[Rfam]
RNA: Small nucleolar RNA SNORA73 family
Organism: Octodon degus
RNA sequence: CCAAUGUGGAUACCUCGGGAGGUCACACUCCUUGGGCUCUGUCCAAGUGGCAUAGGGUAGCAUACAGCUCUGUCAUGUGAUGCACAAUCCCUUUCUACAAUACUGGAGAAAAAAAAUGGCCCCAUGCCUACACCUGCAUAUUCCUACAACUUCUCAGAGUCCUUUGAGCAGUGAGUGAGGAGAUAAACCAUACAGGAAAGAAUG
Numbered sequence: 001c002c003a004a005u006g007u008g009g010a011u012a013c014c015u016c017g018g019g020a021g022g023u024c025a026c027a028c029u030c031c032u033u034g035g036g037c038u039c040u041g042u043c044c045a046a047g048u049g050g051c052a053u054a055g056g057g058u059a060g061c062a063u064a065c066a067g068c069u070c071u072g073u074c075a076u077g078u079g080a081u082g083c084a085c086a087a088u089c090c091c092u093u094u095c096u097a098c099a100a101u102a103c104u105g106g107a108g109a110a111a112a113a114a115a116a117u118g119g120c121c122c123c124a125u126g127c128c129u130a131c132a133c134c135u136g137c138a139u140a141u142u143c144c145u146a147c148a149a150c151u152u153c154u155c156a157g158a159g160u161c162c163u164u165u166g167a168g169c170a171g172u173g174a175g176u177g178a179g180g181a182g183a184u185a186a187a188c189c190a191u192a193c194a195g196g197a198a199a200g201a202a203u204g
Stems, first nucleotide, its partner, number of pairs: 001106003005102003008044005014036003018031004047098004056091002059088001060085001063082002133196004138191002150182006159169002162166001